[Rfam]
RNA: Bacterial large subunit ribosomal RNA, nucleotides 1339 to 1727
Organism: Rhodothermus marinus
RNA sequence: GAGAAGACGGGUGAAAAACCCGUCCGCCGUAAGCCCAAGGGUUCCUGCUCAACGCUAAUCGGAGCAGGGUUAGCCGGGUCCUAAGCCGAGGCCGAAAGGCGUAGGCGAUGGGAAACGGGUUAAUAUUCCCGUGCCACCCGAAGGCGCUAACCUGAGGCGUGACGCAGGAGCGUAAGGCCCGCGCCCUGACGGAAUAGGGCGUUGAAGCCCGUAGGCUGGGUGGUAGGCAAAUCCGCCACCCGCUAAGGCCGAAAGGCGACAGUAGGGGGACCCGCAAGGGAAACCCAUAGAGGCCCCAAGCACACUGCCAAGAAAAGCGUCGCAGGUUGUCUUCGGGUGCCCGUACCGGAAACCGACACAGGUGGGCGAGGCGAGUAUCCUCAGGCGCU
Number, nucleotide and partner (000 for none) at each position: 001g000002a000003g000004a000005a000006g024007a023008c022009g021010g020011g019012u000013g000014a000015a000016a000017a000018a000019c011020c010021c009022g008023u007024c006025c387026g386027c385028c384029g000030u000031a000032a000033g367034c366035c365036c364037a000038a000039g347040g346041g000042u000043u000044c068045c067046u066047g065048c064049u063050c000051a000052a000053c061054g060055c000056u000057a000058a000059u000060c054061g053062g000063a049064g048065c047066a046067g045068g044069g000070u000071u000072a000073g000074c000075c343076g342077g341078g340079u000080c111081c110082u000083a000084a000085g106086c105087c104088g000089a102090g000091g100092c099093c098094g000095a000096a000097a000098g093099g092100c091101g000102u089103a000104g087105g086106c085107g000108a000109u000110g081111g080112g000113a000114a000115a132116c131117g130118g129119g128120u000121u000122a000123a000124u000125a000126u000127u000128c119129c118130c117131g116132u115133g000134c000135c339136a338137c337138c336139c335140g334141a333142a332143g331144g330145c329146g000147c000148u000149a000150a000151c326152c325153u000154g000155a000156g321157g320158c319159g318160u317161g000162a000163c000164g308165c307166a306167g305168g000169a000170g301171c300172g000173u000174a000175a000176g295177g294178c293179c292180c000181g202182c201183g200184c199185c198186c197187u000188g000189a000190c000191g000192g000193a000194a000195u000196a000197g186198g185199g184200c183201g182202u181203u262204g000205a000206a000207g257208c256209c255210c000211g000212u000213a000214g250215g249216c248217u000218g241219g240220g239221u238222g237223g236224u235225a000226g234227g233228c000229a000230a000231a000232u000233c227234c226235g224236c223237c222238a221239c220240c219241c218242g000243c000244u000245a000246a000247g000248g216249c215250c214251g000252a000253a000254a000255g209256g208257c207258g000259a000260c000261a000262g203263u000264a288265g000266g286267g285268g284269g000270a000271c000272c000273c000274g000275c000276a000277a000278g000279g000280g000281a000282a000283a000284c268285c267286c266287a000288u264289a000290g000291a000292g179293g178294c177295c176296c000297c000298a000299a000300g171301c170302a000303c000304a000305c167306u166307g165308c164309c000310a000311a000312g000313a000314a000315a000316a000317g160318c159319g158320u157321c156322g000323c000324a000325g152326g151327u000328u000329g145330u144331c143332u142333u141334c140335g139336g138337g137338u136339g135340c078341c077342c076343g075344u000345a000346c040347c039348g000349g000350a000351a000352a000353c362354c361355g000356a000357c000358a000359c000360a000361g354362g353363u000364g036365g035366g034367c033368g000369a381370g380371g379372c000373g000374a000375g000376u000377a000378u000379c371380c370381u369382c000383a000384g028385g027386c026387g025388c000389u000